mir-34 microRNA precursor family: a 76-nucleotide RNA from Bombus vosnesenskii. The literature on the family includes a 2003 paper in Science by Lim et al., "Vertebrate microRNA genes". About the family: Human mir-34a was discovered computationally and later experimentally verified. The mature sequence is excised from the 5' arm of the hairpin. The family is grouped with related families in Rfam's "mir-34 clan".
RNA sequence: GGCAUGUUGGCAGUGUUGUUAGCUGGUUGUGUGGCUAUAUUGUAUAUACGACCGCUAUCGGCACUGCAAUUAUGAC
Numbered sequence: 001g002g003c004a005u006g007u008u009g010g011c012a013g014u015g016u017u018g019u020u021a022g023c024u025g026g027u028u029g030u031g032u033g034g035c036u037a038u039a040u041u042g043u044a045u046a047u048a049c050g051a052c053c054g055c056u057a058u059c060g061g062c063a064c065u066g067c068a069a070u071u072a073u074g075a076c
Stems, first nucleotide, its partner, number of pairs: 003074004010067001012065007020057003024054010